[Rfam]
RNA sequence: GCAGGCGGCCGGGCGAUCGCUGCCCUCCGGACCGAAAGGUGUUGGAGGGGGGAGGAAAGUCCGAACUCCGCAGGGCAGUGUGCCGGAUAACGUCCGGGACGGAUGCUUCAAGGCAUCUGGACGGCCAGUGCAACAGAAAACAGACCGCCGACUCGAUCCGCAAGGCUCGAAGGUAAGGGUGAAACGGUGCGGUAAGAGCGCACCGGGUCUCGUGUAAACGAGAUCGCAUGGUAAACCCCACACGGAGCAAGACCAAAUAGGCAGGGAACGCAUCCGCCACUCUCCAGGCGGGCGUGCGCAUCGGCCCGAUGCGUCCAGGCGGAGAGACCCACGGCAUGCCGUGGGAGCCGGAACCUGCGGGUAGGUUGCUGGAGCGCCGCAGUAAUGCGUCGCCUAGAGGAAUGAUCGCCUAGAACAAAAUUCGGCUUACGGGCCGUCUGCAGAC
Numbered sequence: 001g002c003a004g005g006c007g008g009c010c011g012g013g014c015g016a017u018c019g020c021u022g023c024c025c026u027c028c029g030g031a032c033c034g035a036a037a038g039g040u041g042u043u044g045g046a047g048g049g050g051g052g053a054g055g056a057a058a059g060u061c062c063g064a065a066c067u068c069c070g071c072a073g074g075g076c077a078g079u080g081u082g083c084c085g086g087a088u089a090a091c092g093u094c095c096g097g098g099a100c101g102g103a104u105g106c107u108u109c110a111a112g113g114c115a116u117c118u119g120g121a122c123g124g125c126c127a128g129u130g131c132a133a134c135a136g137a138a139a140a141c142a143g144a145c146c147g148c149c150g151a152c153u154c155g156a157u158c159c160g161c162a163a164g165g166c167u168c169g170a171a172g173g174u175a176a177g178g179g180u181g182a183a184a185c186g187g188u189g190c191g192g193u194a195a196g197a198g199c200g201c202a203c204c205g206g207g208u209c210u211c212g213u214g215u216a217a218a219c220g221a222g223a224u225c226g227c228a229u230g231g232u233a234a235a236c237c238c239c240a241c242a243c244g245g246a247g248c249a250a251g252a253c254c255a256a257a258u259a260g261g262c263a264g265g266g267a268a269c270g271c272a273u274c275c276g277c278c279a280c281u282c283u284c285c286a287g288g289c290g291g292g293c294g295u296g297c298g299c300a301u302c303g304g305c306c307c308g309a310u311g312c313g314u315c316c317a318g319g320c321g322g323a324g325a326g327a328c329c330c331a332c333g334g335c336a337u338g339c340c341g342u343g344g345g346a347g348c349c350g351g352a353a354c355c356u357g358c359g360g361g362u363a364g365g366u367u368g369c370u371g372g373a374g375c376g377c378c379g380c381a382g383u384a385a386u387g388c389g390u391c392g393c394c395u396a397g398a399g400g401a402a403u404g405a406u407c408g409c410c411u412a413g414a415a416c417a418a419a420a421u422u423c424g425g426c427u428u429a430c431g432g433g434c435c436g437u438c439u440g441c442a443g444a445c
Stems, first nucleotide, its partner, number of pairs: 001441010011430001012410007020052002023049008057428003061425005066247004078243005083097005098122001100119008123238002128236002130232002145178002147174003154169003158165001186204006205227001206225008251367004261358005305347001374393003378389004
RNA: Bacterial RNase P class A